The record is a 131-nucleotide RNA sequence from Candidatus Odyssella acanthamoebae, which matches "Group II catalytic intron D1-D4-7" in Rfam.
From the family's description: Group II introns are found in rRNA, tRNA and mRNA of organelles in fungi, plants and protists, and also in mRNA in bacteria.
Rfam links the family to the GO term Group II intron splicing.
The match comes from Rfam's covariance-model search (76 bits).
NCBI's taxonomy places the organism under Bacteria, Pseudomonadati, Holosporales, Candidatus Paracaedibacteraceae, Candidatus Odyssella.
[Rfam]
RNA sequence: CCACCCCUGCCACGGGGUGACCCUAGGGCCCUGAAUCAAGAGCGGGUCUGACAAUGUAACGAAAGGCAGUAAUGCCUGGGGUUUAAAUCGCGAGAGGCAAGCCCUUCUAGUAACCACGACUGGAUGAGUGC
Number, nucleotide and partner (000 for none) at each position: 001c000002c019003a018004c017005c016006c015007c014008u000009g000010c000011c000012a000013c000014g007015g006016g005017g004018u003019g002020a000021c000022c000023c000024u000025a000026g000027g048028g047029c046030c045031c044032u039033g000034a000035a000036u000037c000038a000039a032040g000041a000042g000043c000044g031045g030046g029047u028048c027049u000050g000051a000052c000053a000054a000055u000056g000057u000058a000059a000060c000061g000062a000063a000064a077065g076066g075067c074068a073069g000070u000071a000072a000073u068074g067075c066076c065077u064078g000079g104080g103081g102082u101083u000084u000085a000086a000087a000088u095089c094090g000091c000092g000093a000094g089095a088096g000097g000098c000099a000100a000101g082102c081103c080104c079105u000106u124107c123108u122109a121110g120111u119112a000113a000114c000115c000116a000117c000118g000119a111120c110121u109122g108123g107124a106125u000126g000127a000128g000129u000130g000131c000